[Rfam]
RNA sequence: GCUGGGAUGAGCUCGUCUGGUGGCGGGCGUAGCCUUCAAAGCUAUGGACGCAGAGAUGCGUAGGGGUUCAAUUCCUCCUUCCUAGC
Numbered sequence: 001g002c003u004g005g006g007a008u009g010a011g012c013u014c015g016u017c018u019g020g021u022g023g024c025g026g027g028c029g030u031a032g033c034c035u036u037c038a039a040a041g042c043u044a045u046g047g048a049c050g051c052a053g054a055g056a057u058g059c060g061u062a063g064g065g066g067u068u069c070a071a072u073u074c075c076u077c078c079u080u081c082c083u084a085g086c
Stems, first nucleotide, its partner, number of pairs: 001086007009078001012027006028046006048061005063077004
Annotation: The record is an 86-nucleotide RNA sequence from Acanthamoeba castellanii, which matches "Selenocysteine transfer RNA" in Rfam. A reference for the family is Mizutani and Goto (2000), "Eukaryotic selenocysteine tRNA has the 9/4 secondary structure", FEBS Lett. Its Rfam clan is "tRNA clan".